A member of the RNA family "Small nucleolar RNA SNORA75" from Pipistrellus kuhlii, 138 nucleotides long.
About the family: U23 belongs to the H/ACA class of snoRNAs. snoRNAs bind a number of proteins (including dyskerin, Gar1p and Nop10p in the case of the H/ACA class) to form snoRNP complexes. This class are thought to guide the sites of modification of uridines to pseudouridines by forming direct base pairing interactions with substrate RNAs. Targets include ribosomal and spliceosomal RNAs as well as the Trypanosoma spliced leader RNA (SL RNA) as possibly other, still unknown cellular RNAs.
The family's RNA type in Rfam is H/ACA-box small nucleolar RNA.
It scores 83 bits against the family's covariance model.
[Rfam]
RNA sequence: GUCUUCUCAGUGAGUUCCUUUCUGUCGCUCUGUGGCAGUUUGUGGAUUCGCACGAGAGAGAGAGAGAGAGAGAGUUCACAGAGCUAGCGUUAUUUUGCCUCCUGUCUUCAGAGGUGUAUUCUGUUUUGUGAGACAUUC
Numbered sequence: 001g002u003c004u005u006c007u008c009a010g011u012g013a014g015u016u017c018c019u020u021u022c023u024g025u026c027g028c029u030c031u032g033u034g035g036c037a038g039u040u041u042g043u044g045g046a047u048u049c050g051c052a053c054g055a056g057a058g059a060g061a062g063a064g065a066g067a068g069a070g071a072g073a074g075u076u077c078a079c080a081g082a083g084c085u086a087g088c089g090u091u092a093u094u095u096u097g098c099c100u101c102c103u104g105u106c107u108u109c110a111g112a113g114g115u116g117u118a119u120u121c122u123g124u125u126u127u128g129u130g131a132g133a134c135a136u137u138c
Stems, first nucleotide, its partner, number of pairs: 004058005014051002016046003022038005076131006098114004103110002